[Rfam]
Rfam assigns this 67-nucleotide sequence from Esox lucius to the family "Selenocysteine insertion sequence 1". A search with the family's covariance model found it, with a score of 39 bits. The base pairs follow the family's consensus structure, which is taken from published work. Rfam describes the family as follows. The incorporation of selenocysteine into a protein sequence is directed by an in-frame UGA codon (usually a stop codon) within the coding region of the mRNA. Selenoprotein mRNAs contain a conserved secondary structure in the 3' UTR that is required for the distinction of UGA stop from UGA selenocysteine.
RNA sequence: UGUGGUUUAAUGAAGGCUUGGUCUGCAAACAGCUUGCUGUUAGGCCAGGCUGGAUGUCUCUGCCACA
Numbered sequence: 001u002g003u004g005g006u007u008u009a010a011u012g013a014a015g016g017c018u019u020g021g022u023c024u025g026c027a028a029a030c031a032g033c034u035u036g037c038u039g040u041u042a043g044g045c046c047a048g049g050c051u052g053g054a055u056g057u058c059u060c061u062g063c064c065a066c067a
Base pairs, nucleotide, nucleotide: 001067002066003065004064005063015051016050017049018048019047020046021045022044023043024042030039031038032037